Annotation
A member of the RNA family "Rhodo-rpoB RNA" from Marivita hallyeonensis, 94 nucleotides long. Lineage of the source: Bacteria > Pseudomonadota > Rhodobacterales > Roseobacteraceae > Marivita. By type it is a cis-regulatory element.
[Rfam]
RNA sequence: AGAUCGGGUGGUGUGCAGUGGGUAUGCGCGCCGAGAAUUGAUCGGAUUUUGUCGUCUCUAUUGGGCAGACCGCCGGGGCCCGACGGCGUGACGC
Numbered sequence: 001a002g003a004u005c006g007g008g009u010g011g012u013g014u015g016c017a018g019u020g021g022g023u024a025u026g027c028g029c030g031c032c033g034a035g036a037a038u039u040g041a042u043c044g045g046a047u048u049u050u051g052u053c054g055u056c057u058c059u060a061u062u063g064g065g066c067a068g069a070c071c072g073c074c075g076g077g078g079c080c081c082g083a084c085g086g087c088g089u090g091a092c093g094c
Base pairs, nucleotide, nucleotide: 002043003042004041005040010032011031012030013029014028015027016026017025068092070090071088072087073086074085075084